[Rfam]
The record is a 109-nucleotide RNA sequence from Cylicostephanus goldi, which matches "SL2 RNA" in Rfam.
Clan: SL clan.
Gene Ontology term of the family: mRNA trans splicing, via spliceosome.
By type it is a non-coding RNA gene.

RNA sequence: GGUUUUAACCCAGUAUCACAAGGUACUAAGGGCGUCCGACCUUCCCUUGCGGUUGCGUCGAAAACCUUAAUUUUUGGAUCGCUUUUCUGGGGUUAUCCGGAAGAGCAAG
Dot-bracket structure: ......(.((...((..(.....)..))..))..).(((((..((.....))..).))))......................(.((((..((....))...)))).)..
Annotation: About the family: This family represents SL2 RNA. SL2 RNA is involved in trans splicing in lower eukaryotes. Trans-splicing is a form of RNA processing.